[Rfam]
A member of the RNA family "Bacterial RNase P class A" from Dermacoccus nishinomiyaensis, 371 nucleotides long. Ribonuclease P (RNase P) is a ubiquitous endoribonuclease, found in archaea, bacteria and eukarya as well as chloroplasts and mitochondria. Its best characterised activity is the generation of mature 5'-ends of tRNAs by cleaving the 5'-leader elements of precursor-tRNAs.
RNA sequence: UGAGUCGGCCGGGCGGUCGCGUCGAGAGUUCGCUCUCGCCGAGGAAAGUCCGGGCUCCACAGGGCAGGGUGAUGGCUAACAGCCACCCGGGGCGACCCGCGGGAAAGUGCCACAGAGAACAGACCGCCACGCUCAUGAGCGCGGCAAGGGUGAAACGGUGGUGCAAGAGACCACCAGCGCCCCAGGCGACUGGGGCGGCUCGGUAAACCCCACCCGGAGCAAGAUCAGACAGCAUGCGUCGAAGCGGCCCGCUGAGCAUGUGGGUAGAUCGCUCGAGCCCUGCAGCAAUGCAGGGCCUAGAUGGAUGAUCGCCGAAGCGAUGCCAGCAAUGGCGCGCGGAACACAACCCGGCUUAUAGGCCGACUCAUCCC
Numbered sequence: 001u002g003a004g005u006c007g008g009c010c011g012g013g014c015g016g017u018c019g020c021g022u023c024g025a026g027a028g029u030u031c032g033c034u035c036u037c038g039c040c041g042a043g044g045a046a047a048g049u050c051c052g053g054g055c056u057c058c059a060c061a062g063g064g065c066a067g068g069g070u071g072a073u074g075g076c077u078a079a080c081a082g083c084c085a086c087c088c089g090g091g092g093c094g095a096c097c098c099g100c101g102g103g104a105a106a107g108u109g110c111c112a113c114a115g116a117g118a119a120c121a122g123a124c125c126g127c128c129a130c131g132c133u134c135a136u137g138a139g140c141g142c143g144g145c146a147a148g149g150g151u152g153a154a155a156c157g158g159u160g161g162u163g164c165a166a167g168a169g170a171c172c173a174c175c176a177g178c179g180c181c182c183c184a185g186g187c188g189a190c191u192g193g194g195g196c197g198g199c200u201c202g203g204u205a206a207a208c209c210c211c212a213c214c215c216g217g218a219g220c221a222a223g224a225u226c227a228g229a230c231a232g233c234a235u236g237c238g239u240c241g242a243a244g245c246g247g248c249c250c251g252c253u254g255a256g257c258a259u260g261u262g263g264g265u266a267g268a269u270c271g272c273u274c275g276a277g278c279c280c281u282g283c284a285g286c287a288a289u290g291c292a293g294g295g296c297c298u299a300g301a302u303g304g305a306u307g308a309u310c311g312c313c314g315a316a317g318c319g320a321u322g323c324c325a326g327c328a329a330u331g332g333c334g335c336g337c338g339g340a341a342c343a344c345a346a347c348c349c350g351g352c353u354u355a356u357a358g359g360c361c362g363a364c365u366c367a368u369c370c371c
Base pairs, nucleotide, nucleotide: 001367002366003365004364005363006362007361008360009359010358011356012313013312014311015310016309017308018307020041021040023038024037025036026035027034028033046354047353048352050351051350052349053348054347055219056218057217058216062250063249064248065247067215068214069213070212071211073085074084075083076082087101088099089098090097091096102210103209107208108207109204110203111202124149125148126145127144128143130141131140132139133138157175158174159173160172161171162170177199178197179196180195181194182193183192184191185190223270224269225268226267232261233260234259235258236257237256243253244252245251277296278295279294280293281292282291283290284289
Dot-bracket structure: ((((((((((((((((((.((.((((((....)))))).))....[[[.[[[[[((((...[[[[.(((((.((((.....)))).(((((....)))).)((...(((((............(((((.((((....)))).)))..)).......((((((.......)))))).(((((((((....)))))))).)..)))..)))))))))))))...((((.....((((((.....(((.]]]])))..)))))).....))))......((((((((....))))))))..........))))))).................................]]]]]]]].).))))))))))....
The base pairs follow the family's consensus structure, which is taken from published work.